[Rfam]
RNA: Small nucleolar RNA SNORA79
Organism: Muraenolepis orangiensis
Nucleotides: 150
Base pairs, nucleotide, nucleotide: 001056002055003054005052006051007050008049014043015042016041018039020036021035022034023033070142071141072140073139074138075137082130083129084128085127086126088123090121095116096115097112098111099110100109101108102107
Number, partner (000 for none) and nucleotide at each position: 001056u002055g003054a004000c005052g006051u007050c008049a009000g010000u011000u012000c013000c014043u015042c016041c017000u018039c019000c020036u021035g022034c023033u024000c025000a026000c027000a028000g029000u030000u031000u032000u033023a034022g035021c036020a037000g038000u039018g040000u041016g042015g043014a044000u045000u046000u047000u048000a049008u050007g051006a052005c053000a054003u055002c056001a057000c058000a059000g060000a061000a062000u063000a064000a065000g066000c067000u068000g069000g070142g071141g072140u073139c074138u075137a076000u077000u078000u079000c080000a081000c082130c083129c084128a085127g086126g087000u088123g089000a090121u091000g092000u093000u094000u095116g096115g097112a098111u099110g100109g101108c102107a103000g104000u105000g106000c107102u108101g109100c110099u111098g112097u113000c114000c115096c116095c117000g118000u119000u120000a121090a122000a123088c124000u125000u126086c127085c128084u129083g130082g131000u132000u133000u134000u135000g136000c137075u138074g139073g140072a141071c142070c143000c144000c145000a146000c147000a148000c149000u150000u